[Rfam]
RNA sequence: UGGGCGGUAUCUCAAAAGAACUGCACCGAUUUUAGUAAAAAAACUUAUGAAUGAAAGUCUGCCUUGAUCUUUUAGGACGGGGACAGAGGG
Numbered sequence: 001u002g003g004g005c006g007g008u009a010u011c012u013c014a015a016a017a018g019a020a021c022u023g024c025a026c027c028g029a030u031u032u033u034a035g036u037a038a039a040a041a042a043a044c045u046u047a048u049g050a051a052u053g054a055a056a057g058u059c060u061g062c063c064u065u066g067a068u069c070u071u072u073u074a075g076g077a078c079g080g081g082g083a084c085a086g087a088g089g090g
Stems, first nucleotide, its partner, number of pairs: 001028003004024005010019002059086003062082005068077003
pan motif: a 90-nucleotide RNA sequence from Sutcliffiella cohnii. A search with the family's covariance model found it, with a score of 68 bits. The family's consensus secondary structure is taken from published work.